[Rfam]
RNA sequence: CACUGUCAAUGAUGAUUUUGUUUAUAAAACAAUGGGAAUCUCUCUGAAAAAGAGUGAAAGAUAAUCGUUUUCCUGAUGCAGUU
Numbered sequence: 001c002a003c004u005g006u007c008a009a010u011g012a013u014g015a016u017u018u019u020g021u022u023u024a025u026a027a028a029a030c031a032a033u034g035g036g037a038a039u040c041u042c043u044c045u046g047a048a049a050a051a052g053a054g055u056g057a058a059a060g061a062u063a064a065u066c067g068u069u070u071u072c073c074u075g076a077u078g079c080a081g082u083u
Stems, first nucleotide, its partner, number of pairs: 002082005
Small nucleolar RNA SNORD79: an 83-nucleotide sequence from Kryptolebias marmoratus. On this family, see Galardi et al., Mol Cell Biol 2002: "Purified box C/D snoRNPs are able to reproduce site-specific 2'-O-methylation of target RNA in vitro". The base pairs follow the family's consensus structure, which was predicted with PFOLD. Its Rfam clan is "SNORD74 clan". It is annotated as a C/D-box small nucleolar RNA. From the family's description: snoRNA U79 or Z22 is found in intron 7 of the gas5 gene in humans and is also present in mice. It scores 72 bits against the family's covariance model. Rfam links the family to the GO terms RNA processing and nucleolus.